Shown here is a 64-nucleotide RNA sequence from Quang Binh virus, a member of the family "Insect-Specific Flavivirus 3' UTR repeats Ra". The family's consensus secondary structure was predicted with LocARNA. It is annotated as a cis-regulatory element. Rfam describes the family as follows. 3' UTR in insect specific flavivirus families present three to four repeats of conserved element Ra. The family is grouped with related families in Rfam's "Insect-Specific Flavivirus 3' UTR repeats Ra and Rb elements".
RNA sequence: GCCCGCGCAAGGAAGGAUGCGAUGAAAACGCUUGUCCUUGGGAGUUGACGACUCUCCGCCCCCA
Numbered sequence: 001g002c003c004c005g006c007g008c009a010a011g012g013a014a015g016g017a018u019g020c021g022a023u024g025a026a027a028a029c030g031c032u033u034g035u036c037c038u039u040g041g042g043a044g045u046u047g048a049c050g051a052c053u054c055u056c057c058g059c060c061c062c063c064a
Stems, first nucleotide, its partner, number of pairs: 005059003013039006040056006
Overview
The sequence is in the family's curated seed alignment.